[Rfam]
RNA sequence: UAAACAGCCAAUAAACAGCCGGAGACAGCAGGGACUAUCUAGUUUAAACAUCCUGCCGAGGUAGUAAUUUUAAUUGCUAAUUUAUCUCAGUUAUUUUUAACAUUGUGAUAAUUACUCUGUAAAAAAUUACUUAUCUCCCACCCCGGUCCAUAAGACUGGGGUUAAUUGUUGAUGGU
Numbered sequence: 001u002a003a004a005c006a007g008c009c010a011a012u013a014a015a016c017a018g019c020c021g022g023a024g025a026c027a028g029c030a031g032g033g034a035c036u037a038u039c040u041a042g043u044u045u046a047a048a049c050a051u052c053c054u055g056c057c058g059a060g061g062u063a064g065u066a067a068u069u070u071u072a073a074u075u076g077c078u079a080a081u082u083u084a085u086c087u088c089a090g091u092u093a094u095u096u097u098u099a100a101c102a103u104u105g106u107g108a109u110a111a112u113u114a115c116u117c118u119g120u121a122a123a124a125a126a127u128u129a130c131u132u133a134u135c136u137c138c139c140a141c142c143c144c145g146g147u148c149c150a151u152a153a154g155a156c157u158g159g160g161g162u163u164a165a166u167u168g169u170u171g172a173u174g175g176u
Stems, first nucleotide, its partner, number of pairs: 028056006034043003141161008
Shown here is a 176-nucleotide RNA sequence from Anabaena sp. FACHB-1237, a member of the family "Ribosomal protein L10 leader". Rfam's curators write: This family is a putative r-protein leader autoregulatory structure found in B. subtilis and other low-GC Gram-positive bacteria. A search with the family's covariance model found it, with a score of 59 bits. By type it is a cis-regulatory leader.